[Rfam]
This 92-nucleotide RNA from Rhodococcus sp. SMB37 belongs to the Rfam family "TPP riboswitch aptamer (THI element)". Lineage of the source: Bacteria > Actinomycetota > Actinomycetes > Mycobacteriales > Rhodococcus. Pairs were carried over by alignment from the consensus structure, which is taken from published work.
RNA sequence: AAACUCGACACGGGGUGCCGGACACGGCUGAGAACACACCCGUAGCACCUGAUCUCGAUCAUGCGAGCGAAGGGAUGCCGAGUCGGCGACAG
Numbered sequence: 001a002a003a004c005u006c007g008a009c010a011c012g013g014g015g016u017g018c019c020g021g022a023c024a025c026g027g028c029u030g031a032g033a034a035c036a037c038a039c040c041c042g043u044a045g046c047a048c049c050u051g052a053u054c055u056c057g058a059u060c061a062u063g064c065g066a067g068c069g070a071a072g073g074g075a076u077g078c079c080g081a082g083u084c085g086g087c088g089a090c091a092g
Base pairs, nucleotide, nucleotide: 006080007079009077010076011042012041013040014039016036017028018027019026020025048073049072050071054067055066056065057064